[Rfam]
RNA sequence: CGCGCUAAUUUCGACCUCUGUCUUCCAGUACAGACUCAACGAAACCCGC
Numbered sequence: 001c002g003c004g005c006u007a008a009u010u011u012c013g014a015c016c017u018c019u020g021u022c023u024u025c026c027a028g029u030a031c032a033g034a035c036u037c038a039a040c041g042a043a044a045c046c047c048g049c
Stems, first nucleotide, its partner, number of pairs: 011042003017034005

This 49-nucleotide RNA from Syntrophotalea acetylenica belongs to the Rfam family "Moco-II RNA". The family's consensus secondary structure is taken from published work. Rfam classes the family as a cis-regulatory element. Lineage of the source: Bacteria > Pseudomonadati > Desulfuromonadia > Syntrophotaleaceae > Syntrophotalea. A search with the family's covariance model found it, with a score of 43 bits.